Rfam assigns this 81-nucleotide RNA sequence from Sphingomonas sp. WG to the family "chrB-a RNA". It scores 75 bits against the family's covariance model. By type it is a cis-regulatory element. The base pairs follow the family's consensus structure, which is taken from published work.

[Rfam]
RNA sequence: GAUAUGGGGAUGGCGAUCUCCCCACGAGGCGUCAGCCAGAGAAUCGCGUCCAGCAAGAACACGCACAAGGGACGCGGCAUG
Numbered sequence: 001g002a003u004a005u006g007g008g009g010a011u012g013g014c015g016a017u018c019u020c021c022c023c024a025c026g027a028g029g030c031g032u033c034a035g036c037c038a039g040a041g042a043a044u045c046g047c048g049u050c051c052a053g054c055a056a057g058a059a060c061a062c063g064c065a066c067a068a069g070g071g072a073c074g075c076g077g078c079a080u081g
Stems, first nucleotide, its partner, number of pairs: 005024006046075006